[Rfam]
RNA sequence: CUGUUAGGGGAAUGAUGUAUUACUAUAGAGCCCUCAAGAUGCUUGCUUAUCUUGACGGUAUAUGUUCACAUCAAUGGUGGGCUACCUUUUGAAAAUGAUGUUGAUCUAUCUCAUGUUGAAGAUGCAAUAUUUACAG
Dot-bracket structure: ((((.(............................................................................................................................).))))
RNA: Small nucleolar RNA J33
Organism: Apium graveolens